A member of the RNA family "Lysine riboswitch aptamer" from Gemmiger sp. An194, 179 nucleotides long.
RNA sequence: CCACACAAUAGAGGCGCAAACCGUAUGGUACCGCAAAGGGAGGCCUGCCGGCCAAAGAUCUUUGCGGGAAGAGGCGGUUUGCCGAAACAGAUUUCCGCGCGGCAGCGGGGUGUUUGUUGGGGUGUCGUCCAGUGGGCGGCGCACUCUCACUUGAACAAAGUGGUGGCGCUAUUGGGGUU
Numbered sequence: 001c002c003a004c005a006c007a008a009u010a011g012a013g014g015c016g017c018a019a020a021c022c023g024u025a026u027g028g029u030a031c032c033g034c035a036a037a038g039g040g041a042g043g044c045c046u047g048c049c050g051g052c053c054a055a056a057g058a059u060c061u062u063u064g065c066g067g068g069a070a071g072a073g074g075c076g077g078u079u080u081g082c083c084g085a086a087a088c089a090g091a092u093u094u095c096c097g098c099g100c101g102g103c104a105g106c107g108g109g110g111u112g113u114u115u116g117u118u119g120g121g122g123u124g125u126c127g128u129c130c131a132g133u134g135g136g137c138g139g140c141g142c143a144c145u146c147u148c149a150c151u152u153g154a155a156c157a158a159a160g161u162g163g164u165g166g167c168g169c170u171a172u173u174g175g176g177g178u179u
Stems, first nucleotide, its partner, number of pairs: 006174006016082009031067008086118007094110003119145002122142008147163006
Source information:
Taxonomically the source falls in Gemmiger (Bacteria, Clostridia, Eubacteriales, Oscillospiraceae).